[Rfam]
RNA sequence: GCUCUGGGCCGAAGUGGUCACGGUUACUUCUCCAACCUCAAUGGGCGGAAGCGGUGCAAGCCGUUCCGGGUUCGAUUCCCGGCAUGAAGUGGCCCGUCCGUGACCCGAACCCUUGUCCAGAGCACU
Numbered sequence: 001g002c003u004c005u006g007g008g009c010c011g012a013a014g015u016g017g018u019c020a021c022g023g024u025u026a027c028u029u030c031u032c033c034a035a036c037c038u039c040a041a042u043g044g045g046c047g048g049a050a051g052c053g054g055u056g057c058a059a060g061c062c063g064u065u066c067c068g069g070g071u072u073c074g075a076u077u078c079c080c081g082g083c084a085u086g087a088a089g090u091g092g093c094c095c096g097u098c099c100g101u102g103a104c105c106c107g108a109a110c111c112c113u114u115g116u117c118c119a120g121a122g123c124a125c126u
Stems, first nucleotide, its partner, number of pairs: 001123008010115003014110002016105008026090005052063004066082005
RNA: Deinococcus radiodurans Y RNA